Rfam assigns this 106-nucleotide RNA sequence from Vibrio ziniensis to the family "gltS RNA".
The source organism's lineage runs through Bacteria, Gammaproteobacteria, Vibrionales, Vibrionaceae and Vibrio.
The base pairs follow the family's consensus structure, which is taken from published work.
A search with the family's covariance model found it, with a score of 89 bits.
[Rfam]
RNA sequence: UAUCACUAUGGAAUGUUUUUCUCACAAAAUUUUUCCGUGAGAGACCGAAAGGAUGCGAACCGACUAGCACUGGUUGGUUUAGAUUCAUUAAUUAUAAAAGGACCGG
Dot-bracket structure: ...................((((((...........))))))................(((((((......)))))))............................